[Rfam]
The family of this 75-nucleotide RNA sequence from Astyanax mexicanus is "mir-196 microRNA precursor family". The family's consensus secondary structure was predicted with PFOLD. The organism belongs to Astyanax, within Eukaryota.
RNA sequence: CGAGUGGUUUAGGUAGUUUCAUGUUGUUGGGAUUGCAUUUCUAGCUCUGCAACACGGAACUGUCUUUAUUGCCAC
Numbered sequence: 001c002g003a004g005u006g007g008u009u010u011a012g013g014u015a016g017u018u019u020c021a022u023g024u025u026g027u028u029g030g031g032a033u034u035g036c037a038u039u040u041c042u043a044g045c046u047c048u049g050c051a052a053c054a055c056g057g058a059a060c061u062g063u064c065u066u067u068a069u070u071g072c073c074a075c
Stems, first nucleotide, its partner, number of pairs: 004072005011065009022054006029047003